[Rfam]
RNA sequence: UUUUUUUUGGGUGAUAACUGUCACGUGUAUCAUGUUCUGAUUGACUAAUGACAACAACAAUACAUUUCAUCUUCCAUGAAUUCGACAUUCAAUCAAAACAUGACACAUGAUAAUCAUCAUCC
Numbered sequence: 001u002u003u004u005u006u007u008u009g010g011g012u013g014a015u016a017a018c019u020g021u022c023a024c025g026u027g028u029a030u031c032a033u034g035u036u037c038u039g040a041u042u043g044a045c046u047a048a049u050g051a052c053a054a055c056a057a058c059a060a061u062a063c064a065u066u067u068c069a070u071c072u073u074c075c076a077u078g079a080a081u082u083c084g085a086c087a088u089u090c091a092a093u094c095a096a097a098a099c100a101u102g103a104c105a106c107a108u109g110a111u112a113a114u115c116a117u118c119a120u121c122c
Base pairs, nucleotide, nucleotide: 020111021110022109023108025106026105031102032101033100035098036097038095040093041092042091043090044089
This 122-nucleotide RNA sequence from Glycine max belongs to the Rfam family "MIR1520 microRNA precursor family". The family is grouped with related families in Rfam's "MIR1520 microRNA precursor clan". The family has 18 seed sequences and 1,934 matches in Rfam 15.1. Lineage of the source: Eukaryota > Euphyllophyta > Magnoliopsida > fabids > Glycine subgen. Soja.